[Rfam]
Background: BsrG: a 261-nucleotide RNA sequence. bsrE, bsrG and bsrH pair through intermolecular interactions with antisense sRNAs. They form type I toxin/antitoxin system that includes an mRNA encoding for a short, toxic peptide (bsrE, bsrG and bsrH) and an antitoxin that is comprised of an antisense RNA. bsrG encodes a 39-amino-acid toxin, and the 180 nucleotide antisense sRNA called SR4 acts as the antitoxin (they overlap by 123 nucleotides). SR4 interaction with the 3'UTR of bsrG RNA promotes bsrG degradation and inhibits its translation. BsrG interferes with cell envelope biosynthesis, causes membrane invaginations and delocalisation of the cell wall synthesis and initiates autolysis. bsrE RNA encodes 30 amino-acid toxin peptide. Its antitoxin gene, SR5 overlaps by 112 nucleotides at the 3' end of bsrE. SR5 also overlaps bsrG from nucleotide 163 to 52 (Rfam overlap check). The antitoxin SR5 promotes bsrE degradation but unlike SR4 it does not directly inhibits toxin mRNA translation.
RNA sequence: UACAAUUGACUAGGCUCUCUCAAGGGUGGUCGGCUCACUCUCUUUUAUCCCGAUAGGGAAGGGGGUGAGAAUAUGGAGGUAUAUCAAGCGUUAUCACUGAUGUUCAUGUUUGGCAUGUUCAUCCUCGCUUUGUUAACCUACCUAAAAAAGAAAUGACCUCCCUUGAGCUUGACAGGCUGGGAGAUCAUUCUCACUAGUUCUUGAGCCACCCCUUUGAAGGGACAGUCUAUUGUAUCGACCGUAGGUGUUAGAGCACCUGCG
Numbered sequence: 001u002a003c004a005a006u007u008g009a010c011u012a013g014g015c016u017c018u019c020u021c022a023a024g025g026g027u028g029g030u031c032g033g034c035u036c037a038c039u040c041u042c043u044u045u046u047a048u049c050c051c052g053a054u055a056g057g058g059a060a061g062g063g064g065g066u067g068a069g070a071a072u073a074u075g076g077a078g079g080u081a082u083a084u085c086a087a088g089c090g091u092u093a094u095c096a097c098u099g100a101u102g103u104u105c106a107u108g109u110u111u112g113g114c115a116u117g118u119u120c121a122u123c124c125u126c127g128c129u130u131u132g133u134u135a136a137c138c139u140a141c142c143u144a145a146a147a148a149a150g151a152a153a154u155g156a157c158c159u160c161c162c163u164u165g166a167g168c169u170u171g172a173c174a175g176g177c178u179g180g181g182a183g184a185u186c187a188u189u190c191u192c193a194c195u196a197g198u199u200c201u202u203g204a205g206c207c208a209c210c211c212c213u214u215u216g217a218a219g220g221g222a223c224a225g226u227c228u229a230u231u232g233u234a235u236c237g238a239c240c241g242u243a244g245g246u247g248u249u250a251g252a253g254c255a256c257c258u259g260c261g
Stems, first nucleotide, its partner, number of pairs: 001234005008227002011224001013207005019167008028158004035068003039065008075137001078134004088103003112129003177197003211221002240261009
Its family is annotated with autolysis and toxin activity in the Gene Ontology.